[Rfam]
The family of this 424-nucleotide part of an RNA from Dictyostelium purpureum is "Eukaryotic large subunit ribosomal RNA". Rfam links the family to the GO terms structural constituent of ribosome and ribosome. Rfam's curators put it in the seed alignment. The family's consensus secondary structure is taken from published work.

RNA sequence: UUGCCUCAUCUAAGUAAGACUACCCGCUGAACUUAAGCAUAUCAGUAAGCGGAGGAAAAGAAACUAACAAGGAUUCCGUCAGUAACGGCGAGUGAAGACGGAGUAGCCCAAGGUUCAAUCCUGGAUCUCUUCGAGGUCAGGAGAUUUAACCUAAGGACUGGGGGAACUCGGUGUCGGCAUCUGUUAAUUCCUUUUGGAAUUUAGAGCCAUUGAAGGUGAAAGCCCUGUUCGCGGGUGUCGACAUCUAGACCAUGCCCUUAGCUCCACGAGUAGGAAUGUCUGAAAGUGCAUUCUGAAUGGGUGAUAAGAUUCAUCCAAGGCUAAAUAUAAGUUAGGAGAUCGAUAGCAUACAAGUACCGUGAGGGAAAGGUGAAAAGAACUUUGAAAAAAGGUUUAAAAGUAUUUGACACCGUUUAUGUGGAAG
Numbered sequence: 001u002u003g004c005c006u007c008a009u010c011u012a013a014g015u016a017a018g019a020c021u022a023c024c025c026g027c028u029g030a031a032c033u034u035a036a037g038c039a040u041a042u043c044a045g046u047a048a049g050c051g052g053a054g055g056a057a058a059a060g061a062a063a064c065u066a067a068c069a070a071g072g073a074u075u076c077c078g079u080c081a082g083u084a085a086c087g088g089c090g091a092g093u094g095a096a097g098a099c100g101g102a103g104u105a106g107c108c109c110a111a112g113g114u115u116c117a118a119u120c121c122u123g124g125a126u127c128u129c130u131u132c133g134a135g136g137u138c139a140g141g142a143g144a145u146u147u148a149a150c151c152u153a154a155g156g157a158c159u160g161g162g163g164g165a166a167c168u169c170g171g172u173g174u175c176g177g178c179a180u181c182u183g184u185u186a187a188u189u190c191c192u193u194u195u196g197g198a199a200u201u202u203a204g205a206g207c208c209a210u211u212g213a214a215g216g217u218g219a220a221a222g223c224c225c226u227g228u229u230c231g232c233g234g235g236u237g238u239c240g241a242c243a244u245c246u247a248g249a250c251c252a253u254g255c256c257c258u259u260a261g262c263u264c265c266a267c268g269a270g271u272a273g274g275a276a277u278g279u280c281u282g283a284a285a286g287u288g289c290a291u292u293c294u295g296a297a298u299g300g301g302u303g304a305u306a307a308g309a310u311u312c313a314u315c316c317a318a319g320g321c322u323a324a325a326u327a328u329a330a331g332u333u334a335g336g337a338g339a340u341c342g343a344u345a346g347c348a349u350a351c352a353a354g355u356a357c358c359g360u361g362a363g364g365g366a367a368a369g370g371u372g373a374a375a376a377g378a379a380c381u382u383u384g385a386a387a388a389a390a391g392g393u394u395u396a397a398a399a400g401u402a403u404u405u406g407a408c409a410c411c412g413u414u415u416a417u418g419u420g421g422a423a424g
Base pairs, nucleotide, nucleotide: 023054024052025051026050027049028048034041035040064071065070075102076101077100078099079098085093086092105322106321107320108319112151113150114149115148117146118145119144120143121141122140124138125137126136127135156264157263158261159260160259161258162257163256164255167248168247170245171244172243173242178237179236180235181234182233183232184231188205191204192203208212215225216224273294274293275292276291277290278289279288299316300315301314302313303312357364358363380391381390382389383388